[Rfam]
RNA: Plastid-psbA-1 3UTR RNA
RNA sequence: UCGAAGCUUUAUCUACUAAUGGAUAAAACUUUGGUCUUAUUGUAAUUGUAUAGGAGUUUUUCAACUAAAAAUGAGCAAUAAUGUCAUCUUGAUAAAACAAGAGGGAAGCUAUUGUUCCUUU
Numbered sequence: 001u002c003g004a005a006g007c008u009u010u011a012u013c014u015a016c017u018a019a020u021g022g023a024u025a026a027a028a029c030u031u032u033g034g035u036c037u038u039a040u041u042g043u044a045a046u047u048g049u050a051u052a053g054g055a056g057u058u059u060u061u062c063a064a065c066u067a068a069a070a071a072u073g074a075g076c077a078a079u080a081a082u083g084u085c086a087u088c089u090u091g092a093u094a095a096a097a098c099a100a101g102a103g104g105g106a107a108g109c110u111a112u113u114g115u116u117c118c119u120u121u
Base pairs, nucleotide, nucleotide: 008023009022010021011020012019069121070120071119073117074116075115076114077113078112079111080110084106085105087102088101089100090099